[Rfam]
RNA sequence: CUGUGCUAGAUGGGGAGUCAGCGGUGCCCUGUAACCUGCAAUCCGCUAUAGCAGGGUCGAAUUCCUAGCCUAGGCUUUAAUCUGUGUGGUCUGCCCUAUGAAAGUGGCGUUGAUGGUUGGGUCCCACGCGACGUAAGUCCAUGAACCUCGUCAGAUCCGGAAGGAAGCAGCGAUAAGUGGUUACUGCGUGCGCCGUGGAUAAAUCUGACCUGAGUUAACUACAUAGGUAACGCAUAUAGAUUACUGUCAAAGCUAGGUGCACGG
Numbered sequence: 001c002u003g004u005g006c007u008a009g010a011u012g013g014g015g016a017g018u019c020a021g022c023g024g025u026g027c028c029c030u031g032u033a034a035c036c037u038g039c040a041a042u043c044c045g046c047u048a049u050a051g052c053a054g055g056g057u058c059g060a061a062u063u064c065c066u067a068g069c070c071u072a073g074g075c076u077u078u079a080a081u082c083u084g085u086g087u088g089g090u091c092u093g094c095c096c097u098a099u100g101a102a103a104g105u106g107g108c109g110u111u112g113a114u115g116g117u118u119g120g121g122u123c124c125c126a127c128g129c130g131a132c133g134u135a136a137g138u139c140c141a142u143g144a145a146c147c148u149c150g151u152c153a154g155a156u157c158c159g160g161a162a163g164g165a166a167g168c169a170g171c172g173a174u175a176a177g178u179g180g181u182u183a184c185u186g187c188g189u190g191c192g193c194c195g196u197g198g199a200u201a202a203a204u205c206u207g208a209c210c211u212g213a214g215u216u217a218a219c220u221a222c223a224u225a226g227g228u229a230a231c232g233c234a235u236a237u238a239g240a241u242u243a244c245u246g247u248c249a250a251a252g253c254u255a256g257g258u259g260c261a262c263g264g
Base pairs, nucleotide, nucleotide: 001264002263003262004261005260006259009058010057011056012030013029014028015027017025018024019023035055036054037053038052039051064257065256066255067254068253069252073248074247075246079242080241081240082239083238084237085236086235087234088233092229093228096226097225098224099223100222104219105218106216107215108214115210116209117208118207119206120205121204122203124198125197126196127195128194129190130189132188133187134186135185137182139180140179141178142177148173149172150171151170156165157164158163